[Rfam]
RNA: Pestivirus internal ribosome entry site (IRES) including 5'UTR SLI
RNA sequence: AAUGUAAGGGACUCCUAAAUUGCUAUAAGCCCUGCGGUGAGUGGGGGAAAGGGGUUAACCAGGCCUCUAGUACCACAGGCACCUAUGGACAGGGCAACUCAAACCUGAGAGAGAGGUACCGAACUCUUAAGUCCCGAGUACGGGGCAGACGUCACCGAGUAGUACACCCAAAGACCACCAUUUGUAGGUGUAGGGUCUACUGAGGCUCGGGUGGACGUGGGCGUGCCCAAAGAGAAAUCGGUGGUGGACCCGGGGGUCGGGGCCACCAUACCCCGUUAUGGGGUAGACCUUACUGCUUGAUAGAGUGCCGGCGGAUGCCUCGGGUAAGAGUAUAAAAUCCGUUGUCUAUUAAC
Numbered sequence: 001a002a003u004g005u006a007a008g009g010g011a012c013u014c015c016u017a018a019a020u021u022g023c024u025a026u027a028a029g030c031c032c033u034g035c036g037g038u039g040a041g042u043g044g045g046g047g048a049a050a051g052g053g054g055u056u057a058a059c060c061a062g063g064c065c066u067c068u069a070g071u072a073c074c075a076c077a078g079g080c081a082c083c084u085a086u087g088g089a090c091a092g093g094g095c096a097a098c099u100c101a102a103a104c105c106u107g108a109g110a111g112a113g114a115g116g117u118a119c120c121g122a123a124c125u126c127u128u129a130a131g132u133c134c135c136g137a138g139u140a141c142g143g144g145g146c147a148g149a150c151g152u153c154a155c156c157g158a159g160u161a162g163u164a165c166a167c168c169c170a171a172a173g174a175c176c177a178c179c180a181u182u183u184g185u186a187g188g189u190g191u192a193g194g195g196u197c198u199a200c201u202g203a204g205g206c207u208c209g210g211g212u213g214g215a216c217g218u219g220g221g222c223g224u225g226c227c228c229a230a231a232g233a234g235a236a237a238u239c240g241g242u243g244g245u246g247g248a249c250c251c252g253g254g255g256g257u258c259g260g261g262g263c264c265a266c267c268a269u270a271c272c273c274c275g276u277u278a279u280g281g282g283g284u285a286g287a288c289c290u291u292a293c294u295g296c297u298u299g300a301u302a303g304a305g306u307g308c309c310g311g312c313g314g315a316u317g318c319c320u321c322g323g324g325u326a327a328g329a330g331u332a333u334a335a336a337a338u339c340c341g342u343u344g345u346c347u348a349u350u351a352a353c
Stems, first nucleotide, its partner, number of pairs: 029095006039080001042077002044074002049068001051066001053065003097331004103325007110294002113291005119241004124234004131146006149218005156209005161201004166196004171191001219228003244266004249261005269285006295306004309344008